The family of this 70-nucleotide RNA from Patiria pectinifera is "tRNA".
A reference for the family is Lowe and Eddy (1997), "tRNAscan-SE: a program for improved detection of transfer RNA genes in genomic sequence", Nucleic Acids Res.
The family's consensus secondary structure is taken from published work.
Lineage of the source: Eukaryota > Opisthokonta > Deuterostomia > Echinodermata > Patiria.
Rfam classes the family as a transfer RNA.

[Rfam]
Nucleotides: 070
Stems, first nucleotide, its partner, number of pairs: 001069007010023004025041005046062005
Number, partner (000 for none) and nucleotide at each position: 001069a002068g003067g004066g005065g006064u007063u008000u009000a010023a011022g012021u013020u014000a015000a016000u017000c018000u019000a020013a021012a022011c023010u024000a025041a026040a027039a028038g029037c030000c031000u032000u033000c034000a035000a036000a037029g038028c039027u040026u041025u042000a043000a044000a045000u046062a047061a048060g049059a050058a051000u052000g053000g054000g055000a056000a057000u058050u059049u060048u061047u062046u063007a064006a065005c066004c067003u068002c069001u070000g